[Rfam]
A member of the RNA family "small nucleolar RNA snoR126" from Aegilops tauschii, 91 nucleotides long. On this family, see Chen and Wu, Nucleic Acids Res 2009: "Mining small RNA sequencing data: a new approach to identify small nucleolar RNAs in Arabidopsis". The family's RNA type in Rfam is C/D-box small nucleolar RNA.
RNA sequence: UGGCUGUGAUGACAACUAGAUUACUUCUUUAUACCUUAAAUUUCAGGUAAGGACCAAAUCUGAUGACUCUAUUUGUGCGUGUCUGAGCCGG
Numbered sequence: 001u002g003g004c005u006g007u008g009a010u011g012a013c014a015a016c017u018a019g020a021u022u023a024c025u026u027c028u029u030u031a032u033a034c035c036u037u038a039a040a041u042u043u044c045a046g047g048u049a050a051g052g053a054c055c056a057a058a059u060c061u062g063a064u065g066a067c068u069c070u071a072u073u074u075g076u077g078c079g080u081g082u083c084u085g086a087g088c089c090g091g
Stems, first nucleotide, its partner, number of pairs: 001090004